[Rfam]
RNA sequence: GCUGGAGUCUGUGGCGGGCUCUGUAAUCCAAGCUACUGGGAUGCUAGAGUUUGAGGAUGGUUUGAGGUUGGGAGCCCUGCUGGUCAGUGUUGCACGUUAUUCCAGCGUCCGCUCUAAGCUUGGCGCCAAUAUGGGUACCCUGGAGACGUCCGGGAUAUCCAGAUUGUCUAAAGAGAUAUGCACUAGGUCCAGCGUAGAAAUCAAGCAACCUAAAGUAUCCGCGGCAAGCUUUGACCUGGGACCUUGCUGGAGAGUGAGUACUGUUAGUAGCCCUUCUAACACAGGCAGACCGAAUUCUUU
Numbered sequence: 001g002c003u004g005g006a007g008u009c010u011g012u013g014g015c016g017g018g019c020u021c022u023g024u025a026a027u028c029c030a031a032g033c034u035a036c037u038g039g040g041a042u043g044c045u046a047g048a049g050u051u052u053g054a055g056g057a058u059g060g061u062u063u064g065a066g067g068u069u070g071g072g073a074g075c076c077c078u079g080c081u082g083g084u085c086a087g088u089g090u091u092g093c094a095c096g097u098u099a100u101u102c103c104a105g106c107g108u109c110c111g112c113u114c115u116a117a118g119c120u121u122g123g124c125g126c127c128a129a130u131a132u133g134g135g136u137a138c139c140c141u142g143g144a145g146a147c148g149u150c151c152g153g154g155a156u157a158u159c160c161a162g163a164u165u166g167u168c169u170a171a172a173g174a175g176a177u178a179u180g181c182a183c184u185a186g187g188u189c190c191a192g193c194g195u196a197g198a199a200a201u202c203a204a205g206c207a208a209c210c211u212a213a214a215g216u217a218u219c220c221g222c223g224g225c226a227a228g229c230u231u232u233g234a235c236c237u238g239g240g241a242c243c244u245u246g247c248u249g250g251a252g253a254g255u256g257a258g259u260a261c262u263g264u265u266a267g268u269a270g271c272c273c274u275u276c277u278a279a280c281a282c283a284g285g286c287a288g289a290c291c292g293a294a295u296u297c298u299u300u
Base pairs, nucleotide, nucleotide: 001044002043004022005021006020007019008018009017010016011015027041028040029039046298047297048296049295050294051293052292053291058287059286061284062283066277067276070273071272072271077270078269079268080267081266082265083264085263086262087261088260089259091258093256094255095254097252101251102250103249104248105247106246107245109240110239113234114233116231117230118229119228120227121226122225124223125222126221127166128165129164130163132161133160134159135158136157137156139154140153141152142151143150144149167173175219176218177217178216179215184212185211186210187209188208194202196201
The family of this 300-nucleotide RNA sequence from Caligus rogercresseyi is "Metazoan signal recognition particle RNA". A reference for the family is Wild et al. (2002), "Towards the structure of the mammalian signal recognition particle", Curr Opin Struct Biol. The family is grouped with related families in Rfam's "SRP clan". The signal recognition particle (SRP) is a universally conserved ribonucleoprotein. Rfam links the family to the GO terms signal recognition particle, endoplasmic reticulum targeting and SRP-dependent cotranslational protein targeting to membrane, signal sequence recognition.